[Rfam]
Lysine riboswitch aptamer: a 179-nucleotide RNA from Clostridium sp. BL8. The family's consensus secondary structure is taken from published work.
Nucleotides: 179
Stems, first nucleotide, its partner, number of pairs: 006174006016087009032072005091119003094115008120146002123143008148164007
Number, partner (000 for none) and nucleotide at each position: 001000g002000u003000c004000a005000u006174a007173a008172a009171u010170a011169g012000a013000g014000g015000u016087g017086c018085a019084g020083a021082u022081a023080a024079a025000g026000u027000u028000g029000g030000u031000a032072g033071u034070u035069c036068a037000u038000a039000g040000a041000u042000g043000u044000u045000a046000a047000g048000g049000a050000g051000a052000a053000a054000a055000a056000c057000c058000u059000c060000c061000a062000a063000u064000g065000a066000u067000u068036u069035g070034a071033a072032c073000a074000a075000a076000g077000u078000g079024u080023u081022u082021a083020u084019u085018u086017g087016c088000c089000g090000a091119a092118a093117g094115a095114a096113u097112a098111u099110a100109u101108a102000g103000u104000u105000u106000u107000u108101u109100a110099u111098a112097u113096a114095u115094u116000a117093c118092u119091u120146g121145g122000g123143g124142g125141u126140a127139g128138a129137g130136g131000g132000u133000a134000a135000u136130c137129u138128u139127c140126u141125a142124u143123c144000a145121c146120u147000g148164c149163c150162a151161u152160a153159a154158a155000u156000a157000a158154u159153u160152u161151a162150u163149g164148g165000a166000g167000a168000g169011c170010u171009a172008u173007u174006u175000a176000u177000g178000u179000g